[Rfam]
RNA: c-di-AMP riboswitch aptamer (ydaO/yuaA leader)
RNA sequence: UCAGGCGCUGCGCUGAGUCUGGACGAUGCCGGGGGUUGCGGAGUCCGGAGCCGGGGAACCACGUUCCUGGGGUGAAUCGCGUGUGGCUGACCGUCGGGAGACGGCCGGUCGUGUGUGUAGGGCUUCUUUGCCGCCCGAACCCGUCAGCUAACUCGGUAGGCGUCACGACAAAGAGGA
Numbered sequence: 001u002c003a004g005g006c007g008c009u010g011c012g013c014u015g016a017g018u019c020u021g022g023a024c025g026a027u028g029c030c031g032g033g034g035g036u037u038g039c040g041g042a043g044u045c046c047g048g049a050g051c052c053g054g055g056g057a058a059c060c061a062c063g064u065u066c067c068u069g070g071g072g073u074g075a076a077u078c079g080c081g082u083g084u085g086g087c088u089g090a091c092c093g094u095c096g097g098g099a100g101a102c103g104g105c106c107g108g109u110c111g112u113g114u115g116u117g118u119a120g121g122g123c124u125u126c127u128u129u130g131c132c133g134c135c136c137g138a139a140c141c142c143g144u145c146a147g148c149u150a151a152c153u154c155g156g157u158a159g160g161c162g163u164c165a166c167g168a169c170a171a172a173g174a175g176g177a
Stems, first nucleotide, its partner, number of pairs: 011162004018049007050157006060069002070142003078117012120136004